[Rfam]
RNA sequence: UGCAAGUAUUUUACGGUUAAGAAGCAUUCGUCUAUUGUACAGAUCGUGUAUUAAUGC
Numbered sequence: 001u002g003c004a005a006g007u008a009u010u011u012u013a014c015g016g017u018u019a020a021g022a023a024g025c026a027u028u029c030g031u032c033u034a035u036u037g038u039a040c041a042g043a044u045c046g047u048g049u050a051u052u053a054a055u056g057c
Stems, first nucleotide, its partner, number of pairs: 018037003022033001024031002
Plastid-rps18 3UTR RNA: a 57-nucleotide sequence from Actinidia chinensis. The match comes from Rfam's covariance-model search (64 bits). On this family, see Richter et al., Plant Commun 2023: "Retrograde signaling in plants: A critical review focusing on the GUN pathway and beyond". By type it is a cis-regulatory element. From the family's description: Plastid rps18 is a non-coding RNA (ncRNA) present in plastids. The source organism's lineage runs through Eukaryota, Euphyllophyta, Mesangiospermae, Pentapetalae and Actinidia chinensis.